RNA: Fluoride riboswitch aptamer (crcB RNA motif)
Organism: Pandoraea thiooxydans
RNA sequence: CUCGCGGCAGGAGAUGGCAUGCCUCCUUUAACCGCCACCGGCCUCGUGCCGGGGCUGAUGAUGCCUACGCAACC
Dot-bracket structure: .........[[[[..(((((..]]]].......(((................))).....))))).........